[Rfam]
RNA sequence: AGUGGGGGUGAGAAACUGGCUUGGCUAUGUACUCCCCAUUGUGGACAGUCAGUCUUUUUCUCUCUCCUAUU
Number, nucleotide and partner (000 for none) at each position: 001a071002g070003u069004g068005g067006g066007g065008g064009u000010g062011a061012g060013a059014a000015a057016c000017u000018g054019g053020c052021u051022u000023g000024g049025c048026u047027a000028u045029g000030u000031a000032c000033u000034c000035c000036c000037c000038a000039u000040u000041g000042u000043g000044g000045a028046c000047a026048g025049u024050c000051a021052g020053u019054c018055u000056u000057u015058u000059u013060c012061u011062c010063u000064c008065u007066c006067c005068u004069a003070u002071u001
The family of this 71-nucleotide RNA from Nasonia vitripennis is "mir-14 microRNA precursor family". Lineage of the source: Eukaryota > Ecdysozoa > Apocrita > Chalcidoidea > Nasonia.